A member of the RNA family "mir-731 microRNA precursor family" from Xiphophorus maculatus, 90 nucleotides long.

RNA sequence: UGAUGUUGUUCCUCAAUGACACGUUUUCUCCCGGAUUGCUGGUAAGCCUGAAUGCAACCGGGAAUUUCGUGUCAGCCAAGAAUGACAUCU
Numbered sequence: 001u002g003a004u005g006u007u008g009u010u011c012c013u014c015a016a017u018g019a020c021a022c023g024u025u026u027u028c029u030c031c032c033g034g035a036u037u038g039c040u041g042g043u044a045a046g047c048c049u050g051a052a053u054g055c056a057a058c059c060g061g062g063a064a065u066u067u068c069g070u071g072u073c074a075g076c077c078a079a080g081a082a083u084g085a086c087a088u089c090u
Stems, first nucleotide, its partner, number of pairs: 002089010017074007029063006036057004042053002